A member of the RNA family "mir-612 microRNA precursor family" from Pongo pygmaeus, 85 nucleotides long. The family's consensus secondary structure was predicted with RNAalifold. For this family Rfam cites "Computational identification of novel microRNA homologs in the chimpanzee genome" (Baev et al., Comput Biol Chem, 2009). Gene Ontology terms of the family: RISC complex and miRNA-mediated post-transcriptional gene silencing. The source organism's lineage runs through Eukaryota, Eumetazoa, Primates, Catarrhini and Pongo. Rfam's curators put it in the seed alignment.

RNA sequence: CUGGACCCUGCUGGGGAGGGCUUCGGAGCUCCUUAGCACUAGCAGGGGGGCUCCAGGGGCCCUCCCUCCAUGGCAGCCAGGACAG
Numbered sequence: 001c002u003g004g005a006c007c008c009u010g011c012u013g014g015g016g017a018g019g020g021c022u023u024c025g026g027a028g029c030u031c032c033u034u035a036g037c038a039c040u041a042g043c044a045g046g047g048g049g050g051c052u053c054c055a056g057g058g059g060c061c062c063u064c065c066c067u068c069c070a071u072g073g074c075a076g077c078c079a080g081g082a083c084a085g
Base pairs, nucleotide, nucleotide: 001085002084003083007080008076009075010074011073012072013067014066015065016064017063018062019061020060021059022058023057024056026054027052028051029050030049031048032047034046036043037042